[Rfam]
RNA sequence: GUUGCAAAUUUGAGGCUGCAGCAGAAGCAGUCAUGGUGUGGCCAUGUCAGAUUCCAACAGACCUGUGAAUUUUGCC
Numbered sequence: 001g002u003u004g005c006a007a008a009u010u011u012g013a014g015g016c017u018g019c020a021g022c023a024g025a026a027g028c029a030g031u032c033a034u035g036g037u038g039u040g041g042c043c044a045u046g047u048c049a050g051a052u053u054c055c056a057a058c059a060g061a062c063c064u065g066u067g068a069a070u071u072u073u074g075c076c
Stems, first nucleotide, its partner, number of pairs: 014043004021075006027039003048065003052061002